[Rfam]
RNA sequence: AGAUUUAGCCCUUCUUGGGGCGUUUCCUCCCUGGACUUGGGCCGCCUGUACGUCCUGUGCAGGCGGCUUCUUUCUUUGUCAGU
Number, nucleotide and partner (000 for none) at each position: 001a000002g000003a000004u000005u000006u000007a000008g021009c020010c019011c018012u000013u000014c000015u000016u000017g000018g011019g010020g009021c008022g000023u000024u000025u000026c000027c000028u000029c000030c000031c000032u000033g000034g000035a000036c000037u000038u000039g000040g068041g067042c066043c065044g064045c063046c062047u061048g060049u059050a058051c057052g000053u000054c000055c000056u000057g051058u050059g049060c048061a047062g046063g045064c044065g043066g042067c041068u040069u000070c000071u000072u000073u000074c000075u000076u000077u000078g000079u000080c000081a000082g000083u000

This 83-nucleotide sequence from Bradyrhizobium sp. BTAi1 belongs to the Rfam family "Makes More Granules Regulator RNA (mmgR)". It is annotated as a small RNA. The organism belongs to Bradyrhizobium, within Bacteria. SuhB later renamed mmgR (makes more granules regulator) was a putative non-coding RNA found multiple times in the Agrobacterium tumefaciens genome and related alpha-proteobacteria. Other non-coding RNAs uncovered in the same analysis include: speF, ybhL, metA, and serC.Several studies inSinorhizobium meliloti showed that suhB element is indeed a non-coding RNA:firstly it was detected on Northern blot and called Sm8RNA, secondly in an RNAseq study referred to as SmelC689.The mutant phenotype's (strain lacking the small RNA) cytoplasm contains higher content of polyhydroxybutyrate (PBH)storage granules than wild type strain. The sRNA is required to limit the PBH intracellular accumulation when the nitrogen-fixing Sinorhizobium meliloti is under condition of surplus carbon in relation to nitrogen. It has been renamed to mmgR. Further study confirmed that mmgR fine-tunes the regulation of PBH storage.Northern blot confirmed the expression of the sRNA in other rhizobia species. MmgR homologues were found in most alpha-proteobacteria. Rfam's curators put it in the seed alignment.